This 94-nucleotide RNA sequence from Triticum aestivum belongs to the Rfam family "Small nucleolar RNA R64/Z200 family".
The base pairs follow the family's consensus structure, which was predicted with PFOLD.
On this family, see Marker et al., Curr Biol 2002: "Experimental RNomics: identification of 140 candidates for small non-messenger RNAs in the plant Arabidopsis thaliana".

[Rfam]
Nucleotides: 094
Base pairs, nucleotide, nucleotide: 002093003092004091005090006089007088047061048060049059050058
Number, partner (000 for none) and nucleotide at each position: 001000g002093c003092a004091u005090u006089g007088c008000g009000g010000u011000g012000a013000u014000g015000a016000a017000u018000u019000u020000a021000u022000g023000u024000a025000u026000u027000u028000u029000c030000g031000c032000a033000u034000g035000u036000c037000a038000g039000a040000c041000u042000u043000c044000a045000g046000a047061g048060a049059u050058g051000c052000c053000c054000c055000u056000g057000g058050c059049g060048u061047c062000a063000g064000c065000g066000a067000g068000a069000a070000u071000u072000c073000a074000u075000a076000u077000c078000a079000u080000a081000u082000g083000a084000c085000u086000g087000a088007g089006c090005a091004a092003u093002g094000a